RNA sequence: UGACCAAGGGGCCGGGAAGCGCUGAUCGAAUGGAUCGGCGAGACCUAGGAGCACAGGGAGUGCUCCCGUGAAUGGGCCGGGUCAGGAAAAGC
Numbered sequence: 001u002g003a004c005c006a007a008g009g010g011g012c013c014g015g016g017a018a019g020c021g022c023u024g025a026u027c028g029a030a031u032g033g034a035u036c037g038g039c040g041a042g043a044c045c046u047a048g049g050a051g052c053a054c055a056g057g058g059a060g061u062g063c064u065c066c067c068g069u070g071a072a073u074g075g076g077c078c079g080g081g082u083c084a085g086g087a088a089a090a091g092c
Stems, first nucleotide, its partner, number of pairs: 001084005010078004014046003020040008048066007

This 92-nucleotide sequence from Pseudomonas sp. v388 belongs to the Rfam family "ivy-DE RNA". The organism belongs to Pseudomonas, within Bacteria. It scores 89 bits against the family's covariance model. Pairs were carried over by alignment from the consensus structure, which is taken from published work. The family's RNA type in Rfam is cis-regulatory element.